Shown here is a 395-nucleotide RNA from Nocardioides iriomotensis, a member of the family "Bacterial RNase P class A".
Taxonomically the source falls in Nocardioides (Bacteria, Bacillati, Actinomycetota, Nocardioidaceae).
A search with the family's covariance model found it, with a score of 289 bits.
[Rfam]
RNA sequence: UGAGCUGGCCGGGCGGCCGCGAGGAGGUGACUCCUCGAGGAAGGUCCGGGCUCCGAAGGGCAAGGGUGGUGGGUAACGCCCACCCGGGGUGACCCGCGGGACAGUGCCACAGAAAGCAAACCGCCGCCGCGCUUGCGCGGAGGUAAGGGUGAAACGGUGGUGUAAGAGACCACCAGCGUUCCGGGUGACCGGAACGGCUCGGUAAACCCCACCCGGAGCAAGGUCAAGAAGGACCGUCGCGAGACGGUCUGCGCGGAUGUUCGAGGGCGGCCCGCCCGAGUCCGCGGGUAGACCGCACGAGGCUGUCGGCAACGGCAGCCCUAGAUGGAUGGUCGCCGACCGCGACGCCGCGAGGCGCGCGGGGACAGAACCCGGCCUACAGGCCAGCUCAUCCC
Numbered sequence: 001u002g003a004g005c006u007g008g009c010c011g012g013g014c015g016g017c018c019g020c021g022a023g024g025a026g027g028u029g030a031c032u033c034c035u036c037g038a039g040g041a042a043g044g045u046c047c048g049g050g051c052u053c054c055g056a057a058g059g060g061c062a063a064g065g066g067u068g069g070u071g072g073g074u075a076a077c078g079c080c081c082a083c084c085c086g087g088g089g090u091g092a093c094c095c096g097c098g099g100g101a102c103a104g105u106g107c108c109a110c111a112g113a114a115a116g117c118a119a120a121c122c123g124c125c126g127c128c129g130c131g132c133u134u135g136c137g138c139g140g141a142g143g144u145a146a147g148g149g150u151g152a153a154a155c156g157g158u159g160g161u162g163u164a165a166g167a168g169a170c171c172a173c174c175a176g177c178g179u180u181c182c183g184g185g186u187g188a189c190c191g192g193a194a195c196g197g198c199u200c201g202g203u204a205a206a207c208c209c210c211a212c213c214c215g216g217a218g219c220a221a222g223g224u225c226a227a228g229a230a231g232g233a234c235c236g237u238c239g240c241g242a243g244a245c246g247g248u249c250u251g252c253g254c255g256g257a258u259g260u261u262c263g264a265g266g267g268c269g270g271c272c273c274g275c276c277c278g279a280g281u282c283c284g285c286g287g288g289u290a291g292a293c294c295g296c297a298c299g300a301g302g303c304u305g306u307c308g309g310c311a312a313c314g315g316c317a318g319c320c321c322u323a324g325a326u327g328g329a330u331g332g333u334c335g336c337c338g339a340c341c342g343c344g345a346c347g348c349c350g351c352g353a354g355g356c357g358c359g360c361g362g363g364g365a366c367a368g369a370a371c372c373c374g375g376c377c378u379a380c381a382g383g384c385c386a387g388c389u390c391a392u393c394c395c
Base pairs, nucleotide, nucleotide: 001391002390003389004388005387006386007385008384009383010382011380012337013336014335015334016333017332018331020037021036022035023034024033025032026031042378043377044376046375047374048373049372050371051218052217053216054215059273060272064214065213066212067211068210069083070082071081072080073079084098085096086095087094088093099209100208104207105206106203107202108201121148122147123144124143125142127140128139129138130137131136156174157173158172159171160170161169176198177196178195179194180193181192182191183190184189222294223293224292225291253285254284255283256282257281258280265277266276267275268274301320302319303318304317305316306315307314308313